A member of the RNA family "ALIL pseudoknot" from Actinomycetales bacterium JB111, 129 nucleotides long. Rfam links the family to the GO term positive regulation of translational frameshifting. Rfam classes the family as a cis-regulatory element. A reference for the family is Mazauric et al. (2008), "Apical loop-internal loop RNA pseudoknots: a new type of stimulator of -1 translational frameshifting in bacteria", J Biol Chem.

[Rfam]
RNA sequence: AGCUUUCUUCGCGGCGGAGCUCGACCGCCCCUCGCACUGAUCGACACCUACAUCGACGAGAACAAGGCCGCCUAUGGGGUCGAGCCGAUCUGCCAGGCGCUACGCAGCGCGGACGUGCAGGUCGCCCCG
Numbered sequence: 001a002g003c004u005u006u007c008u009u010c011g012c013g014g015c016g017g018a019g020c021u022c023g024a025c026c027g028c029c030c031c032u033c034g035c036a037c038u039g040a041u042c043g044a045c046a047c048c049u050a051c052a053u054c055g056a057c058g059a060g061a062a063c064a065a066g067g068c069c070g071c072c073u074a075u076g077g078g079g080u081c082g083a084g085c086c087g088a089u090c091u092g093c094c095a096g097g098c099g100c101u102a103c104g105c106a107g108c109g110c111g112g113a114c115g116u117g118c119a120g121g122u123c124g125c126c127c128c129g
Stems, first nucleotide, its partner, number of pairs: 013029005075129005086124002089121005